Notes:
Alphaproteobacterial sRNA ar35: a 135-nucleotide sequence from Paenochrobactrum gallinarii. The literature on the family includes a 2012 paper in RNA Biol by del Val et al., "A survey of sRNA families in alpha-proteobacteria". A search with the family's covariance model found it, with a score of 47 bits. Pairs were carried over by alignment from the consensus structure. Taxonomically the source falls in Paenochrobactrum (Bacteria, Pseudomonadati, Pseudomonadota, Alphaproteobacteria).
[Rfam]
RNA sequence: AAGUCAGGCAAAAUGUCUGCAUGCAAUCUGCAAGCUGCAUAAUUCGGUAUUACUCAUUCUUGACCACGGAUGUACUGGCACUAAUGAGAAAAUAAUACCAACUGAGGUCAGACAAAUUGUCUGGCCUUUUUUAUU
Number, nucleotide and partner (000 for none) at each position: 001a000002a000003g043004u042005c000006a040007g000008g038009c037010a036011a000012a000013a000014u000015g000016u000017c000018u032019g031020c030021a029022u000023g000024c000025a000026a000027u000028c000029u021030g020031c019032a018033a000034g000035c000036u010037g009038c008039a000040u006041a000042a004043u003044u000045c000046g099047g098048u097049a096050u095051u094052a093053c000054u000055c086056a085057u084058u083059c000060u000061u080062g079063a000064c078065c077066a076067c000068g000069g000070a000071u000072g000073u000074a000075c000076u066077g065078g064079c062080a061081c000082u000083a058084a057085u056086g055087a000088g000089a000090a000091a000092a000093u052094a051095a050096u049097a048098c047099c046100a134101a131102c000103u000104g128105a127106g126107g125108u124109c123110a122111g121112a000113c119114a118115a000116a000117u000118u114119g113120u000121c111122u110123g109124g108125c107126c106127u105128u104129u000130u000131u101132u000133a000134u100135u000